This 243-nucleotide sequence from Candidatus Arcanibacter lacustris belongs to the Rfam family "permuted transfer-messenger RNA". Rfam classes the family as a non-coding RNA gene.
RNA sequence: AGUAAUAAACGUUCCUUGAAAUAGGCGUUACGGACCCGGGGGCAGCGCCCGGCGCCUCCACCAUAAAAAACUAUGGGGGCGAAUUAGGAUCGACGUGCGUAAUAAAGAAGUGGUCUUUUACUCGGGAUGAUUCCACCGAUUGUUAUUUAUAACAAUUAUGGGUCGAAACUUAUAAAUGCCAAUGAUAAUACAAGGCAACCGGCUAACCAAAACUUCGCUUUCAGCUCUAUAGCUGCGGCAUAA
Numbered sequence: 001a002g003u004a005a006u007a008a009a010c011g012u013u014c015c016u017u018g019a020a021a022u023a024g025g026c027g028u029u030a031c032g033g034a035c036c037c038g039g040g041g042g043c044a045g046c047g048c049c050c051g052g053c054g055c056c057u058c059c060a061c062c063a064u065a066a067a068a069a070a071c072u073a074u075g076g077g078g079g080c081g082a083a084u085u086a087g088g089a090u091c092g093a094c095g096u097g098c099g100u101a102a103u104a105a106a107g108a109a110g111u112g113g114u115c116u117u118u119u120a121c122u123c124g125g126g127a128u129g130a131u132u133c134c135a136c137c138g139a140u141u142g143u144u145a146u147u148u149a150u151a152a153c154a155a156u157u158a159u160g161g162g163u164c165g166a167a168a169c170u171u172a173u174a175a176a177u178g179c180c181a182a183u184g185a186u187a188a189u190a191c192a193a194g195g196c197a198a199c200c201g202g203c204u205a206a207c208c209a210a211a212a213c214u215u216c217g218c219u220u221u222c223a224g225c226u227c228u229a230u231a232g233c234u235g236c237g238g239c240a241u242a243a
Stems, first nucleotide, its partner, number of pairs: 001122005015110003026099003030096003036052005053081007123138003
Dot-bracket structure: (((((.........(((........(((.(((...(((((.......)))))(((((((...............)))))))............))))))........))).......)))))(((..........))).........................................................................................................